[Rfam]
RNA sequence: AAACCUGAUGAUGAUUUUGGAUUUAAAUUUCUCACGACGGUCGUCUGAGACACUCACCAGUGUUGGUGCUGAUUUCCUAAUCCAACUUCUGAUGGUU
Numbered sequence: 001a002a003a004c005c006u007g008a009u010g011a012u013g014a015u016u017u018u019g020g021a022u023u024u025a026a027a028u029u030u031c032u033c034a035c036g037a038c039g040g041u042c043g044u045c046u047g048a049g050a051c052a053c054u055c056a057c058c059a060g061u062g063u064u065g066g067u068g069c070u071g072a073u074u075u076c077c078u079a080a081u082c083c084a085a086c087u088u089c090u091g092a093u094g095g096u097u
Stems, first nucleotide, its partner, number of pairs: 001097002004094001051062003
RNA: Small nucleolar RNA Z161/Z228
Organism: Turnera subulata